[Rfam]
RNA: U12 minor spliceosomal RNA
RNA sequence: UUGCCUUAAACUAAUGAGUAAGGAAAACAAAGCGAACUGGUGGGAGCCGGUCGCAGCAUCUAACAACAUGAUGCAAUGAUUUUUGGAGGGGUGAUAGGCUGGUCGUGUGUAGACGCUGCUUACUUUUGCAGAACUCACACGUGCGGGCCUCCCUU
Numbered sequence: 001u002u003g004c005c006u007u008a009a010a011c012u013a014a015u016g017a018g019u020a021a022g023g024a025a026a027a028c029a030a031a032g033c034g035a036a037c038u039g040g041u042g043g044g045a046g047c048c049g050g051u052c053g054c055a056g057c058a059u060c061u062a063a064c065a066a067c068a069u070g071a072u073g074c075a076a077u078g079a080u081u082u083u084u085g086g087a088g089g090g091g092u093g094a095u096a097g098g099c100u101g102g103u104c105g106u107g108u109g110u111a112g113a114c115g116c117u118g119c120u121u122a123c124u125u126u127u128g129c130a131g132a133a134c135u136c137a138c139a140c141g142u143g144c145g146g147g148c149c150u151c152c153c154u155u
Stems, first nucleotide, its partner, number of pairs: 004023005032054003036051005056074004089155003093151001096150005102144001104141002107138003116131004